Rfam assigns this 164-nucleotide RNA sequence from Phyllostomus discolor to the family "U1 spliceosomal RNA". Clan: U1 clan. The family's RNA type in Rfam is spliceosomal small nuclear RNA. The source organism's lineage runs through Eukaryota, Metazoa, Laurasiatheria, Phyllostominae and Phyllostomus.
[Rfam]
RNA sequence: AUACCUAUCUUGCAGGGGAGACGCCACCAUCACGAAGGUGGAUUUCCCAGUGUGAGGCUUAUCCAUUGCUCUCUGGGUGUGCUGAGCCCUGCUCAUUUCCCCAAAUGUGGGGAACUUGACUGCAUAAUUUGUUGUAGUGGGGACUGUGUUCAUGCUCUCUCCUU
Numbered sequence: 001a002u003a004c005c006u007a008u009c010u011u012g013c014a015g016g017g018g019a020g021a022c023g024c025c026a027c028c029a030u031c032a033c034g035a036a037g038g039u040g041g042a043u044u045u046c047c048c049a050g051u052g053u054g055a056g057g058c059u060u061a062u063c064c065a066u067u068g069c070u071c072u073c074u075g076g077g078u079g080u081g082c083u084g085a086g087c088c089c090u091g092c093u094c095a096u097u098u099c100c101c102c103a104a105a106u107g108u109g110g111g112g113a114a115c116u117u118g119a120c121u122g123c124a125u126a127a128u129u130u131g132u133u134g135u136a137g138u139g140g141g142g143a144c145u146g147u148g149u150u151c152a153u154g155c156u157c158u159c160u161c162c163u164u
Stems, first nucleotide, its partner, number of pairs: 012123004016048006024041004049090002052087001056083003060079005092118001095116001096114003100110002139162005146155003